Rfam assigns this 78-nucleotide RNA from Candidatus Planktophila limnetica to the family "Actino-pnp RNA". Taxonomically the source falls in Candidatus Planktophila (Bacteria, Bacillati, Candidatus Nanopelagicales, Candidatus Nanopelagicaceae). It is annotated as a cis-regulatory element.
RNA sequence: AAUGGUCCUCGGUAGUGGUUUCCGGAAAAAUUAGUGCAUCAAAAUUGCACGUCCGUGAACUUCGAUCGAAGAUUCAUU
Numbered sequence: 001a002a003u004g005g006u007c008c009u010c011g012g013u014a015g016u017g018g019u020u021u022c023c024g025g026a027a028a029a030a031u032u033a034g035u036g037c038a039u040c041a042a043a044a045u046u047g048c049a050c051g052u053c054c055g056u057g058a059a060c061u062u063c064g065a066u067c068g069a070a071g072a073u074u075c076a077u078u
Base pairs, nucleotide, nucleotide: 001078002077003076004075005073006072007071009069010068011067012066013065017061018060019059020058021057023055024054025053026052